The record is a 172-nucleotide RNA sequence from Clostridium pasteurianum, which matches "Lysine riboswitch aptamer" in Rfam.
[Rfam]
RNA sequence: GUUAGAGAUAGAGGCGCGAUGCUUAAGAGUACCUUUGUGGAGAUAAGCACUAUGAAACAAUGUGAAAGGAAUCAUCGCCGAAGUUAUAUAGUUAAUGCUUUGAGACUAUAUUGCUGGUUGUGCAUAUAAUAUAUGUAUAACUGUCACAAUUUUGUGGAGAGCUAUCCUGAGC
Numbered sequence: 001g002u003u004a005g006a007g008a009u010a011g012a013g014g015c016g017c018g019a020u021g022c023u024u025a026a027g028a029g030u031a032c033c034u035u036u037g038u039g040g041a042g043a044u045a046a047g048c049a050c051u052a053u054g055a056a057a058c059a060a061u062g063u064g065a066a067a068g069g070a071a072u073c074a075u076c077g078c079c080g081a082a083g084u085u086a087u088a089u090a091g092u093u094a095a096u097g098c099u100u101u102g103a104g105a106c107u108a109u110a111u112u113g114c115u116g117g118u119u120g121u122g123c124a125u126a127u128a129a130u131a132u133a134u135g136u137a138u139a140a141c142u143g144u145c146a147c148a149a150u151u152u153u154g155u156g157g158a159g160a161g162c163u164a165u166c167c168u169g170a171g172c
Stems, first nucleotide, its partner, number of pairs: 007166005016078006023071002033062001035060004082115003086111008116142011144157005